[Rfam]
This 148-nucleotide RNA from Cedecea neteri belongs to the Rfam family "Bacterial antisense RNA HPnc0260".

RNA sequence: AACGCUAAAAUUGACGUUUUCAUGCGCUACGGCUUGCGUGUAAAAAUGAAAUUUGGAGUUUAUCAGGUUGAAGAAAAGCGAAUACAGAAGGGAACUGCUUUAGCAAAUAUGGUGCGUCCGAGUGGACUCGAACCACCGACCCCCACCA
Numbered sequence: 001a002a003c004g005c006u007a008a009a010a011u012u013g014a015c016g017u018u019u020u021c022a023u024g025c026g027c028u029a030c031g032g033c034u035u036g037c038g039u040g041u042a043a044a045a046a047u048g049a050a051a052u053u054u055g056g057a058g059u060u061u062a063u064c065a066g067g068u069u070g071a072a073g074a075a076a077a078g079c080g081a082a083u084a085c086a087g088a089a090g091g092g093a094a095c096u097g098c099u100u101u102a103g104c105a106a107a108u109a110u111g112g113u114g115c116g117u118c119c120g121a122g123u124g125g126a127c128u129c130g131a132a133c134c135a136c137c138g139a140c141c142c143c144c145a146c147c148a
Stems, first nucleotide, its partner, number of pairs: 019044002025038003063071001110145003114141001119138002122136004
Dot-bracket structure: ..................((....(((........)))....))..................(.......)......................................(((.(....((.((((.......))))))..).)))...
The family's consensus secondary structure was predicted with CMfinder. The match comes from Rfam's covariance-model search (71 bits).